[Rfam]
RNA sequence: UCGCACGUCGCUCUCCCAGGCUCGUCUGAGUUCUUCAGGAAGAAGAAGCAGCCCCAAUGCUCGUGCGAAAUCAAACCAGCCGCUAGUGUUGCAGUUUAGCCCUUGUACAUCUCUUUCCGUGGCUUUUCUGUGUCAAAUCAACGGCGACACUA
Dot-bracket structure: ..(((((..((.......(((((.(((................))).).)))).....)).)))))............((((.(..((.(((((....(((...................)))....))))).))....).)))).......
Numbered sequence: 001u002c003g004c005a006c007g008u009c010g011c012u013c014u015c016c017c018a019g020g021c022u023c024g025u026c027u028g029a030g031u032u033c034u035u036c037a038g039g040a041a042g043a044a045g046a047a048g049c050a051g052c053c054c055c056a057a058u059g060c061u062c063g064u065g066c067g068a069a070a071u072c073a074a075a076c077c078a079g080c081c082g083c084u085a086g087u088g089u090u091g092c093a094g095u096u097u098a099g100c101c102c103u104u105g106u107a108c109a110u111c112u113c114u115u116u117c118c119g120u121g122g123c124u125u126u127u128c129u130g131u132g133u134c135a136a137a138u139c140a141a142c143g144g145c146g147a148c149a150c151u152a
Stems, first nucleotide, its partner, number of pairs: 003066005010060002019053004023048001025046003079145004084140001087135002090132005099123003